[Rfam]
A member of the RNA family "ASpks TB sRNA" from Streptomyces triculaminicus, 75 nucleotides long. A search with the family's covariance model found it, with a score of 83 bits. Rfam classes the family as an antisense RNA. The family's consensus secondary structure is taken from published work. Rfam 15.1 lists 9,052 matches to the family in 683 species.
RNA sequence: CUUCAGCGAGCCGAUCCACAGCGGGCGGUCCACCUCCCGCUCCUGGCCGUAGGUGGCGAGAAGGGCCUGUGCCUC
Numbered sequence: 001c002u003u004c005a006g007c008g009a010g011c012c013g014a015u016c017c018a019c020a021g022c023g024g025g026c027g028g029u030c031c032a033c034c035u036c037c038c039g040c041u042c043c044u045g046g047c048c049g050u051a052g053g054u055g056g057c058g059a060g061a062a063g064g065g066c067c068u069g070u071g072c073c074u075c
Stems, first nucleotide, its partner, number of pairs: 015025003031071003038065001043060002047056003
Dot-bracket structure: ..............(((.....))).....(((....(....((..(((....)))..))....)...)))....